[Rfam]
RNA sequence: UAAUGAUAAGGGCAAACCAAGGGAAACCUUGAGACGCAAAGCUAUAGGGGCUUCAUCGACUGAGUCGAUAUGCCAGCCAGUUGCCGAA
Numbered sequence: 001u002a003a004u005g006a007u008a009a010g011g012g013c014a015a016a017c018c019a020a021g022g023g024a025a026a027c028c029u030u031g032a033g034a035c036g037c038a039a040a041g042c043u044a045u046a047g048g049g050g051c052u053u054c055a056u057c058g059a060c061u062g063a064g065u066c067g068a069u070a071u072g073c074c075a076g077c078c079a080g081u082u083g084c085c086g087a088a
Stems, first nucleotide, its partner, number of pairs: 012037002018031005040082004047078002049074003056068004
This 88-nucleotide RNA sequence from Litchfieldia stipae belongs to the Rfam family "c-di-GMP-I riboswitch aptamer". Rfam 15.1 lists 5,092 matches to the family in 1,772 species. It scores 78 bits against the family's covariance model. Rfam describes the family as follows. GEMM was predicted in a large-scale screen for bacterial structured RNA regulatory elements.